[Rfam]
Source information
transfer-messenger RNA: a 370-nucleotide sequence from Streptomyces sp. DJ. The family's consensus secondary structure is taken from published work. Gene Ontology term of the family: RNA catabolic process. By type it is a non-coding RNA gene. A search with the family's covariance model found it, with a score of 167 bits. Lineage of the source: Bacteria > Bacillati > Kitasatosporales > Streptomycetaceae > Streptomyces. The literature on the family includes a 1996 paper in RNA by Williams and Bartel, "Phylogenetic analysis of tmRNA secondary structure".
RNA sequence: GGGGAUGAUCGGUUUCGACUGGGGAUGUCGAAGCAGGGGAAGCGAGCCGAGGAAGCGGCAAUGAUCUCGUAAACCACCUGCCGAAAAAAAUAAUCGCCAACACCAAGCGCGAUUCCUUCGCCCUCGCUGCCUGAGUAGCGACUUGCGAAGUGUCGGCCCGGGAGUGUUCCCGACCCGGAUCCCGGCAUCAGCCAGGGAACUAAACCUUUGAGCCCGGUCACGGGGCCCAAAGGGAAACCAAACAGUGACUGAGCCCGUCGGCAGCUUGUCUGCGUGACUGCCGGGGCUGAGAAAAGCACAGCAGACUGCGCUCGGAGAAGCCCUGUUUCCGCACCACAGGACGCGGGUUCGAUUCCCGCCAUCUCCACAA
Numbered sequence: 001g002g003g004g005a006u007g008a009u010c011g012g013u014u015u016c017g018a019c020u021g022g023g024g025a026u027g028u029c030g031a032a033g034c035a036g037g038g039g040a041a042g043c044g045a046g047c048c049g050a051g052g053a054a055g056c057g058g059c060a061a062u063g064a065u066c067u068c069g070u071a072a073a074c075c076a077c078c079u080g081c082c083g084a085a086a087a088a089a090a091u092a093a094u095c096g097c098c099a100a101c102a103c104c105a106a107g108c109g110c111g112a113u114u115c116c117u118u119c120g121c122c123c124u125c126g127c128u129g130c131c132u133g134a135g136u137a138g139c140g141a142c143u144u145g146c147g148a149a150g151u152g153u154c155g156g157c158c159c160g161g162g163a164g165u166g167u168u169c170c171c172g173a174c175c176c177g178g179a180u181c182c183c184g185g186c187a188u189c190a191g192c193c194a195g196g197g198a199a200c201u202a203a204a205c206c207u208u209u210g211a212g213c214c215c216g217g218u219c220a221c222g223g224g225g226c227c228c229a230a231a232g233g234g235a236a237a238c239c240a241a242a243c244a245g246u247g248a249c250u251g252a253g254c255c256c257g258u259c260g261g262c263a264g265c266u267u268g269u270c271u272g273c274g275u276g277a278c279u280g281c282c283g284g285g286g287c288u289g290a291g292a293a294a295a296g297c298a299c300a301g302c303a304g305a306c307u308g309c310g311c312u313c314g315g316a317g318a319a320g321c322c323c324u325g326u327u328u329c330c331g332c333a334c335c336a337c338a339g340g341a342c343g344c345g346g347g348u349u350c351g352a353u354u355c356c357c358g359c360c361a362u363c364u365c366c367a368c369a370a
Base pairs, nucleotide, nucleotide: 001366002365003364004363005362006361007360019339020338021337023335024334030329031328032327033326034325035324036323037322038321043314044313045312046311047310048069049068050067051066052065056083057082058081059080060079124141125140126139127138128137129136130135151187152186153185154184155183156182158178159177160176162175166200167199168198169197170196171195205233206232207231208230209229210228212226213225216250217249218248219247220246221245252288253287254286255285256284259283260282261281264279266277268306269305270304271303343359344358345357346356347355